[Rfam]
The family of this 114-nucleotide RNA from Actinomadura soli is "ALIL pseudoknot". It scores 58 bits against the family's covariance model. Taxonomically the source falls in Actinomadura (Bacteria, Actinomycetes, Streptosporangiales, Thermomonosporaceae). Rfam links the family to the GO term positive regulation of translational frameshifting. Rfam 15.1 lists 2,146 matches to the family in 1,098 species. Rfam classes the family as a cis-regulatory element.
RNA sequence: GGCGUUUUUCGCCCGGGAACUCGAUCCCAAGCUGCCGCGCUAGUCGAGUUCAUCGAUACCCAUCGUGAACAGUUCGGUGUCGAGCCGAUCUGUGGCGUGCUGGAGUUCGCGUCG
Numbered sequence: 001g002g003c004g005u006u007u008u009u010c011g012c013c014c015g016g017g018a019a020c021u022c023g024a025u026c027c028c029a030a031g032c033u034g035c036c037g038c039g040c041u042a043g044u045c046g047a048g049u050u051c052a053u054c055g056a057u058a059c060c061c062a063u064c065g066u067g068a069a070c071a072g073u074u075c076g077g078u079g080u081c082g083a084g085c086c087g088a089u090c091u092g093u094g095g096c097g098u099g100c101u102g103g104a105g106u107u108c109g110c111g112u113c114g
Stems, first nucleotide, its partner, number of pairs: 016026002075114005086109002090105002093102003